[Rfam]
RNA sequence: GCCGUAAGGCAAUUAAAACACACAAAUACCAAAACAUCGCUUCGGGUGCGCUGCGGCGUUGAAGCAUGGGUAUUUGGAGGAACAAC
Numbered sequence: 001g002c003c004g005u006a007a008g009g010c011a012a013u014u015a016a017a018a019c020a021c022a023c024a025a026a027u028a029c030c031a032a033a034a035c036a037u038c039g040c041u042u043c044g045g046g047u048g049c050g051c052u053g054c055g056g057c058g059u060u061g062a063a064g065c066a067u068g069g070g071u072a073u074u075u076g077g078a079g080g081a082a083c084a085a086c
Stems, first nucleotide, its partner, number of pairs: 023076008035068003039065005048059004
RNA: t44 RNA
Organism: Dichelobacter nodosus